This 169-nucleotide RNA from Brachypodium distachyon belongs to the Rfam family "small nucleolar RNA snoR143". The source organism's lineage runs through Eukaryota, Embryophyta, Liliopsida, Poales and Brachypodium.
[Rfam]
RNA sequence: CUGCACCCGUGUUUGUUUUGUCCUGCUUUCUACCCAUGCUAGUAGGAUAUAACACUGGUGCAAAAAGGAAAAGCUACUCCCUGGAGCAGCAGCGGCCAGACAACCGUAGAGAUAGAUCCACAGAUGAAUGGCUAAUCUGCCACUUGUCUACUAAUUCUAUCUCACAUUU
Dot-bracket structure: .(((((...(((.(....(((((((((.............))))))))).))))...)))))..............................................((((((((..........(((((........))).))..........))))))))......